RNA sequence: ACUAAGGGUAGAGGCGCAUUGUCUAUAAGUAACAAGCUGGAGGGUGAUUCCUAUGAUUGCUUGUGAAAGGAGCCAAUGCCGAAGUAAGAAGGCGUUAAUCGAACGUUCUUGCUGGGGUUGUAUCGAAUAGGUGCAACACUGCCAUAGUAUAUAAUUACAUUAACUAUGGAGCGCUACUGUGAGG
Numbered sequence: 001a002c003u004a005a006g007g008g009u010a011g012a013g014g015c016g017c018a019u020u021g022u023c024u025a026u027a028a029g030u031a032a033c034a035a036g037c038u039g040g041a042g043g044g045u046g047a048u049u050c051c052u053a054u055g056a057u058u059g060c061u062u063g064u065g066a067a068a069g070g071a072g073c074c075a076a077u078g079c080c081g082a083a084g085u086a087a088g089a090a091g092g093c094g095u096u097a098a099u100c101g102a103a104c105g106u107u108c109u110u111g112c113u114g115g116g117g118u119u120g121u122a123u124c125g126a127a128u129a130g131g132u133g134c135a136a137c138a139c140u141g142c143c144a145u146a147g148u149a150u151a152u153a154a155u156u157a158c159a160u161u162a163a164c165u166a167u168g169g170a171g172c173g174c175u176a177c178u179g180u181g182a183g184g
Stems, first nucleotide, its partner, number of pairs: 007178005016079006023072002032064006039057001083113008092104001114140002117137008142169007
RNA: Lysine riboswitch aptamer